[Rfam]
The family of this 317-nucleotide RNA from Syrrhaptes paradoxus is "Small Cajal body-specific RNA 7". NCBI's taxonomy places the organism under Eukaryota, Tetrapoda, Sauria, Archosauria, Syrrhaptes. Gene Ontology terms of the family: RNA processing and nucleolus.
RNA sequence: UGGAAGUGAUGAAAUGGAGAUAGUUGGAUGUCUGAAUGGAGUGUGUGUGAUAAAUGGAAUUUAAACCAAGUCAGACUGGGGGUGGGAUGUGGGGAAUGUGUGUGUAUGUGCAUGUGUGUAUGGGAAAGGCUUUAAAUGGGGGCACUGAUAAUGCAGUGCUGAUUCCGGAGUGCAUCUGAGGCAUGUUGUUAAGUUCUGGGGUGCCCUUUACAACAUUGCCAAUGAUUAAAGCCCAAAACAAGCCCACCAAGACAAGCCUAGGCAUCAUAAAUCUCUAACAGGUUCAUUAAAGAAAGUGAUCCUGUGAUCUGAUCCAA
Numbered sequence: 001u002g003g004a005a006g007u008g009a010u011g012a013a014a015u016g017g018a019g020a021u022a023g024u025u026g027g028a029u030g031u032c033u034g035a036a037u038g039g040a041g042u043g044u045g046u047g048u049g050a051u052a053a054a055u056g057g058a059a060u061u062u063a064a065a066c067c068a069a070g071u072c073a074g075a076c077u078g079g080g081g082g083u084g085g086g087a088u089g090u091g092g093g094g095a096a097u098g099u100g101u102g103u104g105u106a107u108g109u110g111c112a113u114g115u116g117u118g119u120a121u122g123g124g125a126a127a128g129g130c131u132u133u134a135a136a137u138g139g140g141g142g143c144a145c146u147g148a149u150a151a152u153g154c155a156g157u158g159c160u161g162a163u164u165c166c167g168g169a170g171u172g173c174a175u176c177u178g179a180g181g182c183a184u185g186u187u188g189u190u191a192a193g194u195u196c197u198g199g200g201g202u203g204c205c206c207u208u209u210a211c212a213a214c215a216u217u218g219c220c221a222a223u224g225a226u227u228a229a230a231g232c233c234c235a236a237a238a239c240a241a242g243c244c245c246a247c248c249a250a251g252a253c254a255a256g257c258c259u260a261g262g263c264a265u266c267a268u269a270a271a272u273c274u275c276u277a278a279c280a281g282g283u284u285c286a287u288u289a290a291a292g293a294a295a296g297u298g299a300u301c302c303u304g305u306g307a308u309c310u311g312a313u314c315c316a317a
Base pairs, nucleotide, nucleotide: 001316002315003314004313184215185214186213187212188211189210191208193204194203